[Rfam]
RNA sequence: GAAGACCCUGUUGAGCUUGACUCUAGUCUGGCAUUGUAAGGAGACAUGAGAGGUGUAGCAUAAGUGGGAGGUCGCGUUCGCGCGGUCGUCGCUGAAAAACCACUACUUUCAUUGUUUCAUUACUUACUCGGUUGGGCGGAAGCGGUGCGCGGUCGGUGUAACUACCGGCGGGCGCACGGUGUUUCGUUCCAAGCGUGCAGAGUGUCGGCGUGGCGGCAACGCUCGUCGGCGUACAACUCCCGCGUGAUCCGGUUCGAGGACACUGCCAGGCGGGGAGUUUGACUGGGGCGGUACAUCUGUCAAAGAAUAACGCAGGUGUCCUAAGGCCAGCUCAGCGAGGACAGAAACCUCGCGUGGAGCAAAAGGGCAAAAGCUGGCUUGAUCCAGAUGUUCAGUACGCAUAGGGACUGCGAAAGCACGGCCUAUCGAUCCUUUAGUAUAAAGAGUUUUUAGCAAGAGGUGCCAGAAAAGUUACCACAGGGAUAACUGGCUUGUGGCAGCCAAGCGUUCAUAGCGACGUUGCUUUUUGAUCCUUCGAUGU
Number, nucleotide and partner (000 for none) at each position: 001g000002a000003a000004g000005a000006c000007c481008c480009u479010g478011u000012u477013g476014a473015g472016c471017u470018u469019g000020a278021c277022u276023c275024u000025a000026g000027u270028c269029u268030g267031g266032c265033a264034u000035u000036g123037u122038a121039a120040g000041g118042a117043g116044a115045c114046a112047u111048g110049a109050g108051a107052g106053g000054u000055g000056u000057a000058g000059c000060a000061u000062a000063a104064g103065u102066g101067g100068g000069a000070g087071g086072u085073c084074g083075c082076g000077u000078u000079c000080g000081c000082g075083c074084g073085g072086u071087c070088g000089u000090c000091g000092c000093u000094g000095a000096a000097a000098a000099a000100c067101c066102a065103c064104u063105a000106c052107u051108u050109u049110c048111a047112u046113u000114g045115u044116u043117u042118c041119a000120u039121u038122a037123c036124u000125u000126a000127c258128u257129c256130g255131g254132u000133u000134g000135g000136g000137c251138g250139g249140a248141a000142g000143c000144g000145g177146u176147g175148c174149g173150c000151g000152g000153u000154c000155g000156g000157u000158g000159u000160a000161a000162c000163u000164a000165c000166c000167g000168g000169c000170g000171g000172g000173c149174g148175c147176a146177c145178g000179g000180u000181g000182u000183u000184u000185c000186g000187u000188u000189c000190c000191a000192a000193g245194c244195g243196u242197g241198c000199a000200g000201a000202g000203u000204g000205u000206c000207g000208g000209c000210g000211u000212g000213g000214c000215g000216g000217c000218a000219a000220c000221g000222c000223u000224c000225g000226u000227c000228g000229g000230c000231g000232u000233a000234c000235a000236a000237c000238u000239c000240c000241c197242g196243c195244g194245u193246g000247a000248u140249c139250c138251g137252g000253u000254u131255c130256g129257a128258g127259g000260a000261c000262a000263c000264u033265g032266c031267c030268a029269g028270g027271c000272g000273g000274g000275g023276a022277g021278u020279u000280u000281g294282a292283c291284u290285g000286g000287g000288g000289c000290g284291g283292u282293a000294c281295a317296u316297c315298u314299g313300u312301c000302a000303a000304a000305g000306a000307a000308u000309a000310a000311c000312g300313c299314a298315g297316g296317u295318g000319u000320c421321c420322u000323a000324a000325g000326g378327c377328c376329a375330g374331c373332u358333c357334a000335g353336c352337g351338a350339g349340g348341a000342c000343a000344g000345a000346a000347a000348c340349c339350u338351c337352g336353c335354g000355u000356g000357g333358a332359g368360c367361a000362a000363a000364a000365g000366g000367g360368c359369a000370a000371a000372a000373g331374c330375u329376g328377g327378c326379u000380u000381g000382a000383u407384c406385c405386a000387g000388a402389u401390g400391u399392u000393c000394a000395g000396u000397a000398c000399g391400c390401a389402u388403a000404g000405g385406g384407a383408c000409u418410g417411c416412g000413a000414a000415a000416g411417c410418a409419c000420g321421g320422c000423c000424u000425a000426u000427c000428g000429a000430u000431c000432c459433u458434u457435u456436a000437g454438u000439a000440u452441a451442a450443a000444g000445a000446g000447u000448u000449u000450u442451u441452a440453g000454c437455a000456a435457g434458a433459g432460g000461u000462g000463c000464c000465a000466g000467a000468a000469a018470a017471g016472u015473u014474a000475c000476c013477a012478c010479a009480g008481g007482g000483a000484u000485a000486a000487c000488u000489g000490g531491c000492u529493u000494g528495u000496g524497g523498c522499a521500g520501c519502c000503a000504a000505g515506c514507g000508u000509u000510c000511a000512u000513a000514g506515c505516g000517a000518c000519g501520u500521u499522g498523c497524u496525u000526u000527u000528u494529g492530a000531u490532c000533c000534u000535u000536c000537g000538a000539u000540g000541u000
Eukaryotic large subunit ribosomal RNA: a 541-nucleotide part of an RNA from Samia ricini. Lineage of the source: Eukaryota > Ecdysozoa > Arthropoda > Obtectomera > Samia.